Background:
The record is a 250-nucleotide RNA from Peribacillus cavernae, which matches "T-box leader" in Rfam. A reference for the family is Grundy et al. (1994), "Interaction between the acceptor end of tRNA and the T box stimulates antitermination in the Bacillus subtilis tyrS gene: a new role for the discriminator base", J Bacteriol. Rfam describes the family as follows. Uncharged tRNA acts as the effector for transcription antitermination of genes in the T-box leader family. The family has 48 seed sequences and 19,395 matches in Rfam 15.1. By type it is a cis-regulatory leader.

RNA sequence: UAAAAAUCGAUGACGAGAAGAGUAAGAAAAGAUCCCAGUUCCACAGAGAAUCGGUGUAUGGUGAAAGCCGGUGUCCAGGACUUAUCUGAAGAUCAUCUCUGAGAUGCAAAGCUGAACAUCAGUAAGCUUUGACGGGUUUUCCACCGUUACAUUGGAACACGUAUGAUUGUACAUUGACUGAGAGCCGCACAUCAAUUCAUAAGGAUGAGCGGAAUAAGGGUGGUAACGCGAGCGCAAACUCGUCCCUAUA
Numbered sequence: 001u002a003a004a005a006a007u008c009g010a011u012g013a014c015g016a017g018a019a020g021a022g023u024a025a026g027a028a029a030a031g032a033u034c035c036c037a038g039u040u041c042c043a044c045a046g047a048g049a050a051u052c053g054g055u056g057u058a059u060g061g062u063g064a065a066a067g068c069c070g071g072u073g074u075c076c077a078g079g080a081c082u083u084a085u086c087u088g089a090a091g092a093u094c095a096u097c098u099c100u101g102a103g104a105u106g107c108a109a110a111g112c113u114g115a116a117c118a119u120c121a122g123u124a125a126g127c128u129u130u131g132a133c134g135g136g137u138u139u140u141c142c143a144c145c146g147u148u149a150c151a152u153u154g155g156a157a158c159a160c161g162u163a164u165g166a167u168u169g170u171a172c173a174u175u176g177a178c179u180g181a182g183a184g185c186c187g188c189a190c191a192u193c194a195a196u197u198c199a200u201a202a203g204g205a206u207g208a209g210c211g212g213a214a215u216a217a218g219g220g221u222g223g224u225a226a227c228g229c230g231a232g233c234g235c236a237a238a239c240u241c242g243u244c245c246c247u248a249u250a
Stems, first nucleotide, its partner, number of pairs: 007104002015099004025087003029083002041073001050072006107131007133146003185212004190207004217247004228243005